[Rfam]
RNA: 5' ureB small RNA
RNA sequence: CUGUAGGGAUUUGUUGAGGGGAGAUGAAGUGGAUGUGUGUGUCAAUACCACCAGCAGUUACGAUCAAACCUUCACCAGCUAGUGCUUCAGUAGCAGGGCCCACGCUAAGAUUGUUUUUAACGCCAUCUUGCAUGUCUUUGUUACCGCCUUUGCCAAUGCCAGCGAUUUUGCCAUCUUUAAUACCAAUAUCCGCUUUAUAAAUACCGGUGUAAUCCACGAUUAAAGCGUUAGUGAUGAUCAAAUCCAGUUCUUCUUUGCUAGGGUUGUUGGAUUGGCUCAUGCCUUCCCUCAA
Numbered sequence: 001c002u003g004u005a006g007g008g009a010u011u012u013g014u015u016g017a018g019g020g021g022a023g024a025u026g027a028a029g030u031g032g033a034u035g036u037g038u039g040u041g042u043c044a045a046u047a048c049c050a051c052c053a054g055c056a057g058u059u060a061c062g063a064u065c066a067a068a069c070c071u072u073c074a075c076c077a078g079c080u081a082g083u084g085c086u087u088c089a090g091u092a093g094c095a096g097g098g099c100c101c102a103c104g105c106u107a108a109g110a111u112u113g114u115u116u117u118u119a120a121c122g123c124c125a126u127c128u129u130g131c132a133u134g135u136c137u138u139u140g141u142u143a144c145c146g147c148c149u150u151u152g153c154c155a156a157u158g159c160c161a162g163c164g165a166u167u168u169u170g171c172c173a174u175c176u177u178u179a180a181u182a183c184c185a186a187u188a189u190c191c192g193c194u195u196u197a198u199a200a201a202u203a204c205c206g207g208u209g210u211a212a213u214c215c216a217c218g219a220u221u222a223a224a225g226c227g228u229u230a231g232u233g234a235u236g237a238u239c240a241a242a243u244c245c246a247g248u249u250c251u252u253c254u255u256u257g258c259u260a261g262g263g264u265u266g267u268u269g270g271a272u273u274g275g276c277u278c279a280u281g282c283c284u285u286c287c288c289u290c291a292a
Stems, first nucleotide, its partner, number of pairs: 002291002005289005011165006018076002021073003030053003034050002037048004057069003078153001081150002084147002090144007097136003104131002107129005113123002170276004176271007183263002191227007206215002229260003234255001236253002240251001242249001